[Rfam]
RNA sequence: GUAGUCGGAUUCACAUCAAUCCACAUAUAUUGGGGUGGGUUGGAGUGUAACUUGAACUAAAUUCUACACCAAUCCACCUCAACACAUGUGGAUUGAGGUGAAUAUGACA
Numbered sequence: 001g002u003a004g005u006c007g008g009a010u011u012c013a014c015a016u017c018a019a020u021c022c023a024c025a026u027a028u029a030u031u032g033g034g035g036u037g038g039g040u041u042g043g044a045g046u047g048u049a050a051c052u053u054g055a056a057c058u059a060a061a062u063u064c065u066a067c068a069c070c071a072a073u074c075c076a077c078c079u080c081a082a083c084a085c086a087u088g089u090g091g092a093u094u095g096a097g098g099u100g101a102a103u104a105u106g107a108c109a
Stems, first nucleotide, its partner, number of pairs: 004108004009103006016096011028084001030082003035077009045067003
RNA: MIR5565 microRNA precursor family